RNA sequence: CCCGUCAUCUGACGGGCUGGAAUGCACCGGCGCGCAUACCGAUGCAUUCCAGCCCGUCAGAUGACGGG
Numbered sequence: 001c002c003c004g005u006c007a008u009c010u011g012a013c014g015g016g017c018u019g020g021a022a023u024g025c026a027c028c029g030g031c032g033c034g035c036a037u038a039c040c041g042a043u044g045c046a047u048u049c050c051a052g053c054c055c056g057u058c059a060g061a062u063g064a065c066g067g068g
Stems, first nucleotide, its partner, number of pairs: 002067008012057004017052003021048002024045002028041003
Dot-bracket structure: .((((((((..((((.(((.((.((..(((........)))..)).)).))).))))..)))))))).
This 68-nucleotide sequence from Protea cynaroides belongs to the Rfam family "mir-6579 microRNA precursor family". Rfam links the family to the GO terms miRNA-mediated post-transcriptional gene silencing and RISC complex. The family has 2 seed sequences and 4 matches in Rfam 15.1. Lineage of the source: Eukaryota > Viridiplantae > Mesangiospermae > Proteales > Protea.